The record is an 80-nucleotide RNA from Marmota monax, which matches "Small nucleolar RNA SNORD115" in Rfam. Rfam classes the family as a C/D-box small nucleolar RNA. The base pairs follow the family's consensus structure, which was predicted with PFOLD. Gene Ontology terms of the family: RNA processing and nucleolus.
RNA sequence: GGGUUGAUGAUGAAACCUUUAUUGUCUUGAAAAGAGAUGAAGACAUAAAAAUCAUGCUCAAUAGGAUUAUGAUGAAGCCC
Number, nucleotide and partner (000 for none) at each position: 001g080002g079003g078004u077005u074006g073007a000008u071009g070010a000011u000012g000013a000014a000015a000016c000017c000018u000019u000020u000021a000022u000023u000024g000025u000026c000027u000028u000029g000030a000031a000032a000033a000034g000035a000036g000037a000038u000039g000040a000041a000042g000043a000044c000045a000046u000047a000048a000049a000050a000051a000052u000053c000054a000055u000056g000057c000058u000059c000060a000061a000062u000063a000064g000065g000066a000067u000068u000069a000070u009071g008072a000073u006074g005075a000076a000077g004078c003079c002080c001